[Rfam]
Nucleotides: 314
Stems, first nucleotide, its partner, number of pairs: 001314006008307001011062004015033006038058004068306003072302004078296004082291001087288002090285007100275010112262003119258008127247008135238002139234003142182001144180002146177003150173002153170007185230006196221004204213003
Number, partner (000 for none) and nucleotide at each position: 001314u002313g003312g004311c005310g006309g007000g008307u009000a010000g011062g012061g013060c014059c015033g016032g017031g018030g019029g020028g021000c022000u023000a024000g025000c026000c027000c028020u029019c030018c031017c032016c033015u034000a035000c036000a037000a038058c039057c040056u041055g042000a043000a044000a045000c046000g047000g048000g049000c050000u051000u052000a053000g054000g055041c056040a057039g058038g059014g060013g061012c062011c063000a064000g065000c066000a067000a068306c069305c070304g071000a072302c073301u074300g075299g076000a077000a078296g079295g080294g081293g082291u083000g084000u085000c086000c087288g088287g089000c090285c091284c092283u093282c094281u095280g096279c097000a098000c099000g100275g101274c102273c103272u104271a105270g106269a107268c108267g109266a110000a111000g112262g113261g114260u115000g116000u117000g118000a119258g120257g121256c122255c123254g124253c125252g126251u127247c128246c129245c130244a131243c132242c133241g134240g135238a136237g137000a138000a139234c140233g141232g142182u143000a144180g145179g146177g147176u148175g149000c150173g151172g152000c153170g154169c155168c156167a157166c158165g159164c160000g161000u162000a163000a164159g165158c166157g167156u168155g169154g170153c171000c172151u173150c174000c175148c176147a177146c178000a179145c180144c181000c182142g183000c184000a185230u186229g187228c188227a189226c190225c191000g192000a193000a194000c195000c196221g197220c198219g199218u200000c201000a202000g203000g204213c205212c206211c207000g208000g209000g210000a211206g212205g213204g214000a215000g216000c217000a218199g219198c220197g221196c222000u223000a224000a225190g226189g227188u228187g229186c230185a231000g232141c233140c234139g235000g236000g237136c238135u239000g240134c241133u242132g243131g244130u245129g246128g247127g248000g249000g250000u251126g252125c253124g254123u255122g256121g257120c258119u259000g260114a261113c262112u263000g264000a265000a266109u267108c268107g269106u270105c271104u272103a273102g274101g275100c276000g277000c278000g279096g280095c281094a282093g283092a284091g285090g286000c287088c288087c289000c290000g291082g292000c293081c294080c295079u296078c297000g298000a299075c300074c301073a302072g303000c304070c305069g306068g307008a308000g309006c310005c311004g312003c313002c314001a